[Rfam]
RNA sequence: UGACGGGGACCCGCACAAGCGGUGGAGCAUGUGGUUUAAUUCGAUGCUACGCGAAAAACCUUACCACUUUUUGACAUGAAGGUCGUAUCCCUCCUAACAGGGGGAGUCAGUUCGGCUGGACCUUACACAGGUGCUGCAUGGUUGUCGUCAGCUCGUGUCGUGAGAUGUUGGGUUAAGUCCCGCAACGAGCGCAACCCUCAUUCUUAGUUACCAACAGGUAAUGCUGGGCACUCUAAGGAAACUGCCAGUGAUAAACUGGAGGAAGGUGGGGAUGAUGUCAAAUCAGCACGGCCCUUAUAGGGUGGGCUACACACGUGCUACAAUGGCAACUACAAUAGGUUGCGAGACCGCAAGGUUUAGCUAAUCCAUAAAAGUUGUCUCAGUUCGGAUUGUUCUCUGAAACUCGAGAGCAUGAAGUCGGAAUCGCUAGUAAUCGUGGAUCAUCACGCCACGGUGAAUACGUUCUCGGGUCUUGUACACACUGCCCGUCACGCCAUGGGAAUUGGCUUAACUCGAAGCUGGUGUGCUAACCGCAAGGAAGCAGCCAUUUAAGGUUGGGUUAGUGACUAGGGUGAAGUCGUAACAAGG
Numbered sequence: 001u002g003a004c005g006g007g008g009a010c011c012c013g014c015a016c017a018a019g020c021g022g023u024g025g026a027g028c029a030u031g032u033g034g035u036u037u038a039a040u041u042c043g044a045u046g047c048u049a050c051g052c053g054a055a056a057a058a059c060c061u062u063a064c065c066a067c068u069u070u071u072u073g074a075c076a077u078g079a080a081g082g083u084c085g086u087a088u089c090c091c092u093c094c095u096a097a098c099a100g101g102g103g104g105a106g107u108c109a110g111u112u113c114g115g116c117u118g119g120a121c122c123u124u125a126c127a128c129a130g131g132u133g134c135u136g137c138a139u140g141g142u143u144g145u146c147g148u149c150a151g152c153u154c155g156u157g158u159c160g161u162g163a164g165a166u167g168u169u170g171g172g173u174u175a176a177g178u179c180c181c182g183c184a185a186c187g188a189g190c191g192c193a194a195c196c197c198u199c200a201u202u203c204u205u206a207g208u209u210a211c212c213a214a215c216a217g218g219u220a221a222u223g224c225u226g227g228g229c230a231c232u233c234u235a236a237g238g239a240a241a242c243u244g245c246c247a248g249u250g251a252u253a254a255a256c257u258g259g260a261g262g263a264a265g266g267u268g269g270g271g272a273u274g275a276u277g278u279c280a281a282a283u284c285a286g287c288a289c290g291g292c293c294c295u296u297a298u299a300g301g302g303u304g305g306g307c308u309a310c311a312c313a314c315g316u317g318c319u320a321c322a323a324u325g326g327c328a329a330c331u332a333c334a335a336u337a338g339g340u341u342g343c344g345a346g347a348c349c350g351c352a353a354g355g356u357u358u359a360g361c362u363a364a365u366c367c368a369u370a371a372a373a374g375u376u377g378u379c380u381c382a383g384u385u386c387g388g389a390u391u392g393u394u395c396u397c398u399g400a401a402a403c404u405c406g407a408g409a410g411c412a413u414g415a416a417g418u419c420g421g422a423a424u425c426g427c428u429a430g431u432a433a434u435c436g437u438g439g440a441u442c443a444u445c446a447c448g449c450c451a452c453g454g455u456g457a458a459u460a461c462g463u464u465c466u467c468g469g470g471u472c473u474u475g476u477a478c479a480c481a482c483u484g485c486c487c488g489u490c491a492c493g494c495c496a497u498g499g500g501a502a503u504u505g506g507c508u509u510a511a512c513u514c515g516a517a518g519c520u521g522g523u524g525u526g527c528u529a530a531c532c533g534c535a536a537g538g539a540a541g542c543a544g545c546c547a548u549u550u551a552a553g554g555u556u557g558g559g560u561u562a563g564u565g566a567c568u569a570g571g572g573u574g575a576a577g578u579c580g581u582a583a584c585a586a587g588g
Base pairs, nucleotide, nucleotide: 001479002478003476004475005474007473008472009471010470011469012468013467015463016462019427020426021425022424023423024321026319027318028317029316030315031314032313033312034310035309040055041054042053043052064305065304066303067302068301069300070299077127078126079124080123081122082121083120088105089104090103091102092101093100107119108118109117110116130294131293133292134291135290136289139288140287141283142282143281144279146277147276151190152189153188154187155186156185157166158165159164169182170181171180172179196271197270198269199268201239202238203237204236205235206234207233211228212227215226216225217224242262243261245259246258247257248256249255325379326378327377328376329375330374331373338367339366342361343360347356348355349354386417391412392411393410394409395408396407397406433455434454435453436452437451438450439449482587484584487580488579492574493573494572495571497569498568499567502564503563504562505561506560507559508558509557510556511555512554513553518549520547521546522545523544525543526542527541528540531538532537
RNA: Bacterial small subunit ribosomal RNA, nucleotides 883 to 1470
Organism: Ehrlichia canis